[Rfam]
The family of this 134-nucleotide RNA sequence from Rattus norvegicus is "Small nucleolar RNA SNORA69". Gene Ontology terms of the family: nucleolus and RNA processing. The match comes from Rfam's covariance-model search (105 bits). U69 is a member of the H/ACA class of small nucleolar RNAs (snoRNAs) which act as guides in the the modification of uridines to pseudouridines.
RNA sequence: UGAGCAGGUAGCAAUUACAGUGCUUCAUUUUGUGGGAGUACUGCCAUUAAUCCUGCUGAAAGAAAAGCCAUGUUGAUGUUUCUGAUUUUUGCAUUUAUUGGAGUAAAAAUCAUGACACUUGCAUGGGGACAGUU
Numbered sequence: 001u002g003a004g005c006a007g008g009u010a011g012c013a014a015u016u017a018c019a020g021u022g023c024u025u026c027a028u029u030u031u032g033u034g035g036g037a038g039u040a041c042u043g044c045c046a047u048u049a050a051u052c053c054u055g056c057u058g059a060a061a062g063a064a065a066a067g068c069c070a071u072g073u074u075g076a077u078g079u080u081u082c083u084g085a086u087u088u089u090u091g092c093a094u095u096u097a098u099u100g101g102a103g104u105a106a107a108a109a110u111c112a113u114g115a116c117a118c119u120u121g122c123a124u125g126g127g128g129a130c131a132g133u134u
Stems, first nucleotide, its partner, number of pairs: 003057006018043009068128002071125003076119001083112010094101001